This 72-nucleotide sequence from Petromyzon marinus belongs to the Rfam family "mir-183 microRNA precursor family". Lineage of the source: Eukaryota > Eumetazoa > Bilateria > Cyclostomata > Petromyzon. The base pairs follow the family's consensus structure, which was predicted with RNAalifold. The literature on the family includes a 2003 paper in RNA by Lagos-Quintana et al., "New microRNAs from mouse and human". Rfam's curators put it in the seed alignment.
RNA sequence: CCCUGUCUAUGGCACUGGUAGAAUUCACUGUUCCCGCUGACCUCAGUGAAUUACUAGAGGCCAUAAACAGAG
Numbered sequence: 001c002c003c004u005g006u007c008u009a010u011g012g013c014a015c016u017g018g019u020a021g022a023a024u025u026c027a028c029u030g031u032u033c034c035c036g037c038u039g040a041c042c043u044c045a046g047u048g049a050a051u052u053a054c055u056a057g058a059g060g061c062c063a064u065a066a067a068c069a070g071a072g
Base pairs, nucleotide, nucleotide: 003070004069005068006067008065009064010063011062012061016056017055018054022052023051024050025049026048027047028046029045030044